Small nucleolar RNA SNORD71: an 83-nucleotide RNA sequence from Leptobrachium leishanense. snoRNA HBII-239 belongs to the family of C/D snoRNAs.It is the human orthologue of the mouse MBII-239 described and is predicted to guide 2'O-ribose methylation of 5.8S rRNA on residue U14. The family's RNA type in Rfam is H/ACA-box small nucleolar RNA. The base pairs follow the family's consensus structure, which was predicted with RNAalifold. The literature on the family includes a 2001 paper in EMBO J by Huttenhofer et al., "RNomics: an experimental approach that identifies 201 candidates for novel, small, non-messenger RNAs in mouse".

[Rfam]
RNA sequence: CAGGUGUUGAAUGAUGAUCAUUGAGUGAUCCAUCGGCAGAGUCUUGUCACGAUGCUGAGUCUCAGAAAAUCUGACAGCACCUU
Numbered sequence: 001c002a003g004g005u006g007u008u009g010a011a012u013g014a015u016g017a018u019c020a021u022u023g024a025g026u027g028a029u030c031c032a033u034c035g036g037c038a039g040a041g042u043c044u045u046g047u048c049a050c051g052a053u054g055c056u057g058a059g060u061c062u063c064a065g066a067a068a069a070u071c072u073g074a075c076a077g078c079a080c081c082u083u
Stems, first nucleotide, its partner, number of pairs: 002082007009071002013030003017026001033058005041050002